[Rfam]
RNA: Glycine riboswitch aptamer
RNA sequence: CCACGCAGCACGGGGGAGAUCGUCUCCAGCGACGACGCCGACGGAGCAACCGCCCCGGAGACUCUCAGGCAAAAGGACCACGCAGCGGGA
Numbered sequence: 001c002c003a004c005g006c007a008g009c010a011c012g013g014g015g016g017a018g019a020u021c022g023u024c025u026c027c028a029g030c031g032a033c034g035a036c037g038c039c040g041a042c043g044g045a046g047c048a049a050c051c052g053c054c055c056c057g058g059a060g061a062c063u064c065u066c067a068g069g070c071a072a073a074a075g076g077a078c079c080a081c082g083c084a085g086c087g088g089g090a
Stems, first nucleotide, its partner, number of pairs: 006085001008083002012079002020035004037070003040066002044064003050058002
Dot-bracket structure: .....(.((..((......((((........)))).(((((..(((...((.....))...))))).))).......))..)).).....